This 267-nucleotide RNA from Gorillibacterium sp. belongs to the Rfam family "Bacterial large signal recognition particle RNA". A search with the family's covariance model found it, with a score of 202 bits.

RNA sequence: CCGUGCUAGAUGGGGAGGCAGCGGUGCCCUGUAACCCGCAAUCCGCUACAGCGGGAUUGAAUCCCUGUCAGAGGUCUUGUUGAUGUGAGGUCUGACGUUUAUACGAAGUGUUGACAGCCGGGUCCCUCGCAAUGGAUGCCCGUGAAUCCGGUCAGGUCCGGAAGGAAGCAGCCGUAAGUGGGAUGUUUCAUGUGCCGAGGGGUAGCCUAGCUUGAGCUUACGAUAAAUGUUCCGCUUGGGUCGCAAUGAUCAAUGACAGGUGCACGG
Numbered sequence: 001c002c003g004u005g006c007u008a009g010a011u012g013g014g015g016a017g018g019c020a021g022c023g024g025u026g027c028c029c030u031g032u033a034a035c036c037c038g039c040a041a042u043c044c045g046c047u048a049c050a051g052c053g054g055g056a057u058u059g060a061a062u063c064c065c066u067g068u069c070a071g072a073g074g075u076c077u078u079g080u081u082g083a084u085g086u087g088a089g090g091u092c093u094g095a096c097g098u099u100u101a102u103a104c105g106a107a108g109u110g111u112u113g114a115c116a117g118c119c120g121g122g123u124c125c126c127u128c129g130c131a132a133u134g135g136a137u138g139c140c141c142g143u144g145a146a147u148c149c150g151g152u153c154a155g156g157u158c159c160g161g162a163a164g165g166a167a168g169c170a171g172c173c174g175u176a177a178g179u180g181g182g183a184u185g186u187u188u189c190a191u192g193u194g195c196c197g198a199g200g201g202g203u204a205g206c207c208u209a210g211c212u213u214g215a216g217c218u219u220a221c222g223a224u225a226a227a228u229g230u231u232c233c234g235c236u237u238g239g240g241u242c243g244c245a246a247u248g249a250u251c252a253a254u255g256a257c258a259g260g261u262g263c264a265c266g267g
Stems, first nucleotide, its partner, number of pairs: 001267006009058003012030004017025001019023001035055005064260007073251004081243004086238004093234002096229006104222002107218003116212003120208004124201006130192002133190004139182005149174004157166003
Dot-bracket structure: ((((((..(((((((.(.(...).).))))....(((((...........)))))))).....(((((((..((((....((((.((((...((.((((((..((.(((......(((.((((((((((((.((((..(((((.....((((....(((....)))....))))...)))))....))))))...))))))...)))).)))...)))..)).))))))...)))))).))))....))))..))))))).))))))